[Rfam]
Background: A member of the RNA family "c-di-GMP-I riboswitch aptamer" from Peptoclostridium litorale, 85 nucleotides long. The family's consensus secondary structure is taken from published work. About the family: GEMM was predicted in a large-scale screen for bacterial structured RNA regulatory elements. Genes associated with GEMM are involved in a diverse array of functions, including chemotaxis regulation, signal transduction, secretion and chitin. The match comes from Rfam's covariance-model search (68 bits).

RNA sequence: AUGAAUAUUUGGCACACCUGUCGAAAGGCAGGGCCGCAAAGCCAUGGGUCUAAAGAGUUUUCUCCAGGACAGCCAGGCCGCCCUU
Number, nucleotide and partner (000 for none) at each position: 001a000002u000003g000004a000005a000006u000007a000008u000009u000010u000011g000012g037013c036014a000015c000016a000017c032018c031019u030020g029021u028022c027023g000024a000025a000026a000027g022028g021029c020030a019031g018032g017033g000034c000035c000036g013037c012038a000039a000040a000041g078042c077043c076044a000045u075046g074047g073048g070049u069050c068051u000052a000053a000054a000055g064056a063057g062058u000059u000060u000061u000062c057063u056064c055065c000066a000067g000068g050069a049070c048071a000072g000073c047074c046075a045076g043077g042078c041079c000080g000081c000082c000083c000084u000085u000